RNA: Small nucleolar RNA snR31
Organism: Maudiozyma saulgeensis
RNA sequence: GAUCAUUGAUAAUUUCAUGUGUCAUUUAUUGGCGUCACUCAAUAUUAUGCUCUCAAUAUAUUGAGUUUUUUAGAUGCCUGAUAAAUACUAGUCUUUGGUUCCAUUUUCAAUCUUUUACGAUGCAUGAUAAAGCAAUUUUUACAAAAAAACGAUGUAUCUCCAGCUGUUGAUAUAGAGUGGGAAGACUUUUCUCUUCUUGUUCGCCUUUACAAAAAUCUGAUACAAUUGGUCAUUUUUCGUUUUACAUUU
Dot-bracket structure: ..............((((((((..((((((((((((((((......((.........))...))))......)))).))))))))(...((.....................))....)))))))))..................((((.((.......((((.(((.......((((.(((((........))))).))))...................))).)))).......)).))))......